[Rfam]
RNA sequence: GGACGGUGAAGAUUGAUAUUUGGUCUUGUAUCUGGCAUUUAUUUGCCUUGCCGACCAUCCUGCUACAUCACUACACAUAUUCUGCGUCC
Numbered sequence: 001g002g003a004c005g006g007u008g009a010a011g012a013u014u015g016a017u018a019u020u021u022g023g024u025c026u027u028g029u030a031u032c033u034g035g036c037a038u039u040u041a042u043u044u045g046c047c048u049u050g051c052c053g054a055c056c057a058u059c060c061u062g063c064u065a066c067a068u069c070a071c072u073a074c075a076c077a078u079a080u081u082c083u084g085c086g087u088c089c
Stems, first nucleotide, its partner, number of pairs: 001089004037049001
Small nucleolar RNA Z43: an 89-nucleotide RNA sequence from Triticum turgidum. A search with the family's covariance model found it, with a score of 65 bits. A reference for the family is Chen et al. (2003), "The high diversity of snoRNAs in plants: identification and comparative study of 120 snoRNA genes from Oryza sativa", Nucleic Acids Res. Its family is annotated with nucleolus and RNA processing in the Gene Ontology. The family has 7 seed sequences and 859 matches in Rfam 15.1. The source organism's lineage runs through Eukaryota, Streptophyta, Magnoliopsida, Poaceae and Triticum turgidum. Pairs were carried over by alignment from the consensus structure, which was predicted with PFOLD.